[Rfam]
RNA sequence: CGACCCCGUGCGGGAGAGUCCUCUGGCAAAGUCGCCCGAGGCGCCGAAGGAGCAAACCCUCCCCGGAAUCUCUCAGGCUCACGUACCGCGCGGACGAG
Numbered sequence: 001c002g003a004c005c006c007c008g009u010g011c012g013g014g015a016g017a018g019u020c021c022u023c024u025g026g027c028a029a030a031g032u033c034g035c036c037c038g039a040g041g042c043g044c045c046g047a048a049g050g051a052g053c054a055a056a057c058c059c060u061c062c063c064c065g066g067a068a069u070c071u072c073u074c075a076g077g078c079u080c081a082c083g084u085a086c087c088g089c090g091c092g093g094a095c096g097a098g
Base pairs, nucleotide, nucleotide: 006093007092008091009090010089011088012087013086020041021040022039023038043078044077045076046074047073050072051071052070057065

The record is a 98-nucleotide RNA sequence from Streptomyces daliensis, which matches "Glycine riboswitch aptamer" in Rfam. The pairing is the family consensus, mapped onto this sequence. For this family Rfam cites "A glycine-dependent riboswitch that uses cooperative binding to control gene expression" (Mandal et al., Science, 2004). Its family is annotated with glycine biosynthetic process in the Gene Ontology. It scores 68 bits against the family's covariance model.